[Rfam]
Nucleotides: 068
Stems, first nucleotide, its partner, number of pairs: 011056003016052004023044009
Number, partner (000 for none) and nucleotide at each position: 001000g002000a003000c004000g005000a006000u007000u008000c009000u010000a011056u012055c013054g014000u015000g016052c017051g018050c019049c020000a021000a022000g023044c024043c025042u026041g027040c028039c029038a030037c031036u032000u033000a034000c035000c036031g037030g038029u039028g040027g041026c042025g043024g044023g045000g046000g047000a048000g049019g050018g051017c052016g053000g054013c055012g056011a057000a058000a059000a060000g061000a062000g063000g064000g065000c066000u067000c068000u

A member of the RNA family "ilvH RNA" from Ottowia flava, 68 nucleotides long. The match comes from Rfam's covariance-model search (78 bits). The organism belongs to Ottowia, within Bacteria. It is annotated as a cis-regulatory element. Pairs were carried over by alignment from the consensus structure, which is taken from published work.